[Rfam]
RNA sequence: UGUGCUAAUGAUGACAAACUAGACAGGGACAUCAGAUCUCCUAAUUAGAGAAAAUGCUGAUUUGUCUGUGGGAAUCUCUCUGAUGCACA
Numbered sequence: 001u002g003u004g005c006u007a008a009u010g011a012u013g014a015c016a017a018a019c020u021a022g023a024c025a026g027g028g029a030c031a032u033c034a035g036a037u038c039u040c041c042u043a044a045u046u047a048g049a050g051a052a053a054a055u056g057c058u059g060a061u062u063u064g065u066c067u068g069u070g071g072g073a074a075u076c077u078c079u080c081u082g083a084u085g086c087a088c089a
Base pairs, nucleotide, nucleotide: 002088003087004086005085
Shown here is an 89-nucleotide RNA from Medicago truncatula, a member of the family "Small nucleolar RNA R44/J54/Z268 family".
Rfam links the family to the GO terms RNA processing and nucleolus.
The match comes from Rfam's covariance-model search (78 bits).
Rfam classes the family as a C/D-box small nucleolar RNA.
Pairs were carried over by alignment from the consensus structure, which was predicted with PFOLD.
The family has 29 seed sequences and 1,168 matches in Rfam 15.1.
Taxonomically the source falls in Medicago (Eukaryota, Streptophytina, Euphyllophyta, eudicotyledons).